The family of this 106-nucleotide RNA from Clostridium luticellarii is "SAM riboswitch aptamer (S box leader)". Taxonomically the source falls in Clostridium (Bacteria, Bacillati, Bacillota, Clostridia). The family's consensus secondary structure is taken from published work.

RNA sequence: UUCUUAUCAAGAGAGGCGGAGGGACUGGCCCUAUGAUGCCCGGCAACCUGAUUAUUUCAAAGGUGCCAAUUCCAGCGGGUUACAUAAUUUGCCUGAAAGAUGAGAA
Numbered sequence: 001u002u003c004u005u006a007u008c009a010a011g012a013g014a015g016g017c018g019g020a021g022g023g024a025c026u027g028g029c030c031c032u033a034u035g036a037u038g039c040c041c042g043g044c045a046a047c048c049u050g051a052u053u054a055u056u057u058c059a060a061a062g063g064u065g066c067c068a069a070u071u072c073c074a075g076c077g078g079g080u081u082a083c084a085u086a087a088u089u090u091g092c093c094u095g096a097a098a099g100a101u102g103a104g105a106a
Stems, first nucleotide, its partner, number of pairs: 001106008013041001015040003021031003025075004042067004047063002049059003071098001076095005